[Rfam]
RNA sequence: GUCGAGCUAAGUAACGAGAGCUUGUGACCCGAGUGGGGAUAAUAAGAUGGUGGAACACUGGUUUGGUCCACGGGUCGGGUCUGUUGUGUGGCGAGUUUCUGAGCUGGCCCAGUCCAAGCUGAGAGUUAUCUGUCUGGUUUGAGCGUAGGCUCGGGUCAGGUGGGCACUAAAGUUGGAGGGUAAUGCGUUAGGCUGGUUUCACAGAGCAGCGACUACUUCCCGCUCUCUGCAGUGGACGGAUAACAGCUCGGCCCUGCUCAGACCCACUAUGGCCUGCUGGUUCGUUCUCAGCUGAACCACCAUUUUU
Numbered sequence: 001g002u003c004g005a006g007c008u009a010a011g012u013a014a015c016g017a018g019a020g021c022u023u024g025u026g027a028c029c030c031g032a033g034u035g036g037g038g039a040u041a042a043u044a045a046g047a048u049g050g051u052g053g054a055a056c057a058c059u060g061g062u063u064u065g066g067u068c069c070a071c072g073g074g075u076c077g078g079g080u081c082u083g084u085u086g087u088g089u090g091g092c093g094a095g096u097u098u099c100u101g102a103g104c105u106g107g108c109c110c111a112g113u114c115c116a117a118g119c120u121g122a123g124a125g126u127u128a129u130c131u132g133u134c135u136g137g138u139u140u141g142a143g144c145g146u147a148g149g150c151u152c153g154g155g156u157c158a159g160g161u162g163g164g165c166a167c168u169a170a171a172g173u174u175g176g177a178g179g180g181u182a183a184u185g186c187g188u189u190a191g192g193c194u195g196g197u198u199u200c201a202c203a204g205a206g207c208a209g210c211g212a213c214u215a216c217u218u219c220c221c222g223c224u225c226u227c228u229g230c231a232g233u234g235g236a237c238g239g240a241u242a243a244c245a246g247c248u249c250g251g252c253c254c255u256g257c258u259c260a261g262a263c264c265c266a267c268u269a270u271g272g273c274c275u276g277c278u279g280g281u282u283c284g285u286u287c288u289c290a291g292c293u294g295a296a297c298c299a300c301c302a303u304u305u306u307u
Stems, first nucleotide, its partner, number of pairs: 001040003004023005028037003044306010056294002058291003061287001064284003067280002071276006077265007086257001089256003093253001099251007107244001109239002112237005118230002121227006127166001129164016167172001175220005186211003193204003

Rfam assigns this 307-nucleotide RNA from Brassica oleracea to the family "Plant signal recognition particle RNA".
It is annotated as a non-coding RNA gene.
For this family Rfam cites "Structural and energetic analysis of RNA recognition by a universally conserved protein from the signal recognition particle" (Batey et al., J Mol Biol, 2001).
The family's consensus secondary structure is taken from published work.